c-di-AMP riboswitch aptamer (ydaO/yuaA leader): a 197-nucleotide sequence from Streptomyces longispororuber.
[Rfam]
RNA sequence: UCGCGUCAAGCGCCGAAGGCAGGAGCGGGGGACCCAAGGUAAGCGCCGGGCCCGGACGUUGGACGGCCGCGCAGCAGCGCGGCGGUCCGGACGCACGGGAACGGCUAGGGGUGAAGUCGCUGCGCUAGGCCGCAGGGACCGGGCACUCACCCGCCCGAACCCGACAGCUCACCUCGCAGGCGUCGGUGAGGGGAUCA
Numbered sequence: 001u002c003g004c005g006u007c008a009a010g011c012g013c014c015g016a017a018g019g020c021a022g023g024a025g026c027g028g029g030g031g032a033c034c035c036a037a038g039g040u041a042a043g044c045g046c047c048g049g050g051c052c053c054g055g056a057c058g059u060u061g062g063a064c065g066g067c068c069g070c071g072c073a074g075c076a077g078c079g080c081g082g083c084g085g086u087c088c089g090g091a092c093g094c095a096c097g098g099g100a101a102c103g104g105c106u107a108g109g110g111g112u113g114a115a116g117u118c119g120c121u122g123c124g125c126u127a128g129g130c131c132g133c134a135g136g137g138a139c140c141g142g143g144c145a146c147u148c149a150c151c152c153g154c155c156c157g158a159a160c161c162c163g164a165c166a167g168c169u170c171a172c173c174u175c176g177c178a179g180g181c182g183u184c185g186g187u188g189a190g191g192g193g194a195u196c197a
Stems, first nucleotide, its partner, number of pairs: 011182004025177006035108001109162003117138002120135004141156004